[Rfam]
RNA sequence: GGCAUUUUAUUUCUAUACCACGGUUAGCCCCGGAAACUAAUCGUAUUUGAGAUAAAUAAA
Numbered sequence: 001g002g003c004a005u006u007u008u009a010u011u012u013c014u015a016u017a018c019c020a021c022g023g024u025u026a027g028c029c030c031c032g033g034a035a036a037c038u039a040a041u042c043g044u045a046u047u048u049g050a051g052a053u054a055a056a057u058a059a060a
Base pairs, nucleotide, nucleotide: 006056007055008054009053010052011051012050020044021043022042023041024040025039026038027037